[Rfam]
RNA sequence: GCCGGGCGUCGUGGCGGGCGCUUGUAAACCAAGUCUCUGGGUGGCUGAGUUUGCGAAACGAUCGGCGUAAGGGUCAAACGGCCUGUGGCGGCGGAUUGUAGACCGAGUGUCCGUCUCAAGGGCGGCGUCGACAAGGGACAGCGCUGGAAGCAGUGCAGCUCCUGGUCGGUUAAAGAGGGAAGCACUGGCCCAGGCCCCACAGGGAGCAAGCUAAAUUCCCCGCGCCGUUACAGUGAGCGGAUCGCGCUCGCGAGGUCCACGGUCUCAGGUUGCCUGACGUGGUUCGCUACCUAAACUUUU
Numbered sequence: 001g002c003c004g005g006g007c008g009u010c011g012u013g014g015c016g017g018g019c020g021c022u023u024g025u026a027a028a029c030c031a032a033g034u035c036u037c038u039g040g041g042u043g044g045c046u047g048a049g050u051u052u053g054c055g056a057a058a059c060g061a062u063c064g065g066c067g068u069a070a071g072g073g074u075c076a077a078a079c080g081g082c083c084u085g086u087g088g089c090g091g092c093g094g095a096u097u098g099u100a101g102a103c104c105g106a107g108u109g110u111c112c113g114u115c116u117c118a119a120g121g122g123c124g125g126c127g128u129c130g131a132c133a134a135g136g137g138a139c140a141g142c143g144c145u146g147g148a149a150g151c152a153g154u155g156c157a158g159c160u161c162c163u164g165g166u167c168g169g170u171u172a173a174a175g176a177g178g179g180a181a182g183c184a185c186u187g188g189c190c191c192a193g194g195c196c197c198c199a200c201a202g203g204g205a206g207c208a209a210g211c212u213a214a215a216u217u218c219c220c221c222g223c224g225c226c227g228u229u230a231c232a233g234u235g236a237g238c239g240g241a242u243c244g245c246g247c248u249c250g251c252g253a254g255g256u257c258c259a260c261g262g263u264c265u266c267a268g269g270u271u272g273c274c275u276g277a278c279g280u281g282g283u284u285c286g287c288u289a290c291c292u293a294a295a296c297u298u299u300u
Base pairs, nucleotide, nucleotide: 001045002044003043004023005022006021007020008019009018010017028042029041030040047298048297049296050295051294052293053292055290057288059286060285061284063282065280066279067278068277070275071274072273079272080271081270082269083268084267085266087264088263089262091260093258094257095256096255097254099252104250105249106248107247108246109245110244111240112239115237116236117235118234120231122228123227124226125225126224127223128222129168130167131166132165134163135162136161137160139158141156142155143154144153145152146151170174177220178219179218180217181216186213187212188211189210195204196203197202
A member of the RNA family "Metazoan signal recognition particle RNA" from Bursaphelenchus okinawaensis, 300 nucleotides long. The family's RNA type in Rfam is non-coding RNA gene. About the family: The signal recognition particle (SRP) is a universally conserved ribonucleoprotein. It is involved in the co-translational targeting of proteins to membranes. The eukaryotic SRP consists of a 300-nucleotide 7S RNA and six proteins: SRPs 72, 68, 54, 19, 14, and 9. Archaeal SRP consists of a 7S RNA and homologues of the eukaryotic SRP19 and SRP54 proteins. Eukaryotic and archaeal 7S RNAs have very similar secondary structures, as represented by this family. Eight helical elements fold into the Alu and S domains, separated by a long linker region. The Alu domain is thought to mediate the peptide chain elongation retardation function of the SRP. The universally conserved helix which interacts with the SRP54 M domain mediates signal sequence recognition. In eukaryotes and archaea, the SRP19-helix 6 complex is thought to be involved in SRP assembly and stabilises helix 8 for SRP54 binding. The Signal Recognition Particle Database (SRPDB) provides compilations of SRP components, with phylogenetic data and structural illustrations. Many sequences below the threshold for this family are clearly closely related, but are most likely to be SRP RNA derived pseudogenes. The human genome in particular is known to contain a large amount of SRP RNA related sequence, including Alu repeats. While the threshold of this family is set high so as to minimise the number of hits to such regions, it is likely that some remain.